[Rfam]
RNA sequence: GCUGGGCGCUGUGGCGUGCGCCUGUAAUCCAGCUACUUGGAGGCUAGAGGUGGUGAAUGGCUUGAGACGUGGAUUCCUGAUCGCUGUCGUUCUAUGUCGAUCGGGUGUCCGCACUAAGUCGGGCGUCAAUAUGGUGAAUUGAGAGGAGUCUCGGCUCACCAGGUUAGUUAAAGAGAAGUGUAUCGGCCCAGGGUGGAAACACAGCAGGCAAAAGCUUCCGCGUUCGACAGUAGUGGGAUAGCAUCUGUGAAUAGACGGCAGUGAUCAGCCACGUCAAGACAGUUGAACCCAUCUCUUU
Number, nucleotide and partner (000 for none) at each position: 001g044002c043003u042004g023005g022006g021007c020008g019009c018010u000011g000012u000013g000014g000015c000016g000017u000018g009019c008020g007021c006022c005023u004024g000025u000026a000027a000028u041029c040030c039031a000032g000033c000034u000035a000036c000037u000038u000039g030040g029041a028042g003043g002044c001045u000046a296047g295048a294049g293050g292051u291052g290053g289054u000055g000056a000057a000058u285059g284060g283061c282062u281063u000064g000065a000066g275067a274068c273069g272070u271071g270072g269073a000074u000075u000076c000077c268078u267079g266080a265081u264082c263083g262084c261085u260086g259087u258088c257089g256090u000091u255092c254093u253094a252095u251096g000097u249098c000099g000100a000101u000102c247103g246104g245105g244106u243107g242108u241109c237110c236111g000112c235113a234114c233115u232116a231117a000118g228119u227120c226121g225122g224123g223124c222125g221126u220127c000128a165129a164130u163131a000132u161133g160134g159135u158136g157137a156138a000139u154140u153141g152142a151143g150144a149145g000146g000147a000148g000149u144150c143151u142152c141153g140154g139155c000156u137157c136158a135159c134160c133161a132162g000163g130164u129165u128166a000167g000168u172169u000170a000171a000172a168173g000174a000175g218176a217177a216178g215179u214180g000181u000182a000183u000184c000185g000186g209187c208188c207189c000190a000191g000192g000193g202194u201195g200196g000197a000198a000199a000200c195201a194202c193203a000204g000205c000206a000207g188208g187209c186210a000211a000212a000213a000214g179215c178216u177217u176218c175219c000220g126221c125222g124223u123224u122225c121226g120227a119228c118229a000230g000231u116232a115233g114234u113235g112236g110237g109238a000239u000240a000241g108242c107243a106244u105245c104246u103247g102248u000249g097250a000251a095252u094253a093254g092255a091256c089257g088258g087259c086260a085261g084262u083263g082264a081265u080266c079267a078268g077269c072270c071271a070272c069273g068274u067275c066276a000277a000278g000279a000280c000281a062282g061283u060284u059285g058286a000287a000288c000289c053290c052291a051292u050293c049294u048295c047296u046297u000298u000

The family of this 298-nucleotide sequence from Exaiptasia diaphana is "Metazoan signal recognition particle RNA". Its family is annotated with signal recognition particle, endoplasmic reticulum targeting and SRP-dependent cotranslational protein targeting to membrane, signal sequence recognition in the Gene Ontology. The family's RNA type in Rfam is non-coding RNA gene. The signal recognition particle (SRP) is a universally conserved ribonucleoprotein. It is involved in the co-translational targeting of proteins to membranes. The eukaryotic SRP consists of a 300-nucleotide 7S RNA and six proteins: SRPs 72, 68, 54, 19, 14, and 9. Archaeal SRP consists of a 7S RNA and homologues of the eukaryotic SRP19 and SRP54 proteins. Eukaryotic and archaeal 7S RNAs have very similar secondary structures, as represented by this family. Eight helical elements fold into the Alu and S domains, separated by a long linker region. The Alu domain is thought to mediate the peptide chain elongation retardation function of the SRP. The universally conserved helix which interacts with the SRP54 M domain mediates signal sequence recognition. In eukaryotes and archaea, the SRP19-helix 6 complex is thought to be involved in SRP assembly and stabilises helix 8 for SRP54 binding. The Signal Recognition Particle Database (SRPDB) provides compilations of SRP components, with phylogenetic data and structural illustrations. Many sequences below the threshold for this family are clearly closely related, but are most likely to be SRP RNA derived pseudogenes. The human genome in particular is known to contain a large amount of SRP RNA related sequence, including Alu repeats. While the threshold of this family is set high so as to minimise the number of hits to such regions, it is likely that some remain. The literature on the family includes a 2002 paper in Curr Opin Struct Biol by Wild et al., "Towards the structure of the mammalian signal recognition particle".